[Rfam]
The family of this 72-nucleotide RNA sequence from Medicago truncatula is "MIR2629 microRNA precursor family". Taxonomically the source falls in Medicago (Eukaryota, Streptophytina, Tracheophyta, Fabales). Gene Ontology terms of the family: miRNA-mediated post-transcriptional gene silencing and RISC complex. The family's consensus secondary structure was predicted with RNAalifold.
RNA sequence: UGUCGAGGUUUUCCUCAGUAGUUAACUGCAACCGAUUUUAAACCUCCUCGGCAGUUAACUGCCGAAGAACAU
Numbered sequence: 001u002g003u004c005g006a007g008g009u010u011u012u013c014c015u016c017a018g019u020a021g022u023u024a025a026c027u028g029c030a031a032c033c034g035a036u037u038u039u040a041a042a043c044c045u046c047c048u049c050g051g052c053a054g055u056u057a058a059c060u061g062c063c064g065a066a067g068a069a070c071a072u
Stems, first nucleotide, its partner, number of pairs: 012068002015065002018062012